[Rfam]
RNA sequence: GGUCUGUGAUGAACAGUAAAAGGUCUGAUUUCCCCAAGACUUGCUCUUCCAUGACCCCUUCUCCCAGCGGUUUCUCACCAGUCACAGCACAGCAAUGGUGUGGCUGGCAGAGUGUUUGCUGACAGCUCGUGAUGUGCUCGGUUCGUGUCACCCUCAAGUACUGGAGACGUGGCUGGGCUCAGCAUCCAACAGCCCUACCUGAAGGAGUCUGGGGUCUUGGACAGUUAAAACUGGACACGUGAUCUGACUUUUCUGCUGAGACC
Numbered sequence: 001g002g003u004c005u006g007u008g009a010u011g012a013a014c015a016g017u018a019a020a021a022g023g024u025c026u027g028a029u030u031u032c033c034c035c036a037a038g039a040c041u042u043g044c045u046c047u048u049c050c051a052u053g054a055c056c057c058c059u060u061c062u063c064c065c066a067g068c069g070g071u072u073u074c075u076c077a078c079c080a081g082u083c084a085c086a087g088c089a090c091a092g093c094a095a096u097g098g099u100g101u102g103g104c105u106g107g108c109a110g111a112g113u114g115u116u117u118g119c120u121g122a123c124a125g126c127u128c129g130u131g132a133u134g135u136g137c138u139c140g141g142u143u144c145g146u147g148u149c150a151c152c153c154u155c156a157a158g159u160a161c162u163g164g165a166g167a168c169g170u171g172g173c174u175g176g177g178c179u180c181a182g183c184a185u186c187c188a189a190c191a192g193c194c195c196u197a198c199c200u201g202a203a204g205g206a207g208u209c210u211g212g213g214g215u216c217u218u219g220g221a222c223a224g225u226u227a228a229a230a231c232u233g234g235a236c237a238c239g240u241g242a243u244c245u246g247a248c249u250u251u252u253c254u255g256c257u258g259a260g261a262c263c
Stems, first nucleotide, its partner, number of pairs: 001263004037245003041241001048221004053216002061207004065121006078107009129187001131186005136180001144171006151164002
RNA: Small Cajal body specific RNA 6
Organism: Columba livia